[Rfam]
RNA sequence: ACUGCCGAAAGGCAAAACCAGGGAAACCUGGUGACGCAAAGUCAUGGGUCUAAAAUCACAAAUUAUUUUUCGUGAUCAUGACCGCCAGACCGCCGAA
Numbered sequence: 001a002c003u004g005c006c007g008a009a010a011g012g013c014a015a016a017a018c019c020a021g022g023g024a025a026a027c028c029u030g031g032u033g034a035c036g037c038a039a040a041g042u043c044a045u046g047g048g049u050c051u052a053a054a055a056u057c058a059c060a061a062a063u064u065a066u067u068u069u070u071c072g073u074g075a076u077c078a079u080g081a082c083c084g085c086c087a088g089a090c091c092g093c094c095g096a097a
Stems, first nucleotide, its partner, number of pairs: 012037002017032006041090003045087003048082003055076004
RNA: c-di-GMP-I riboswitch aptamer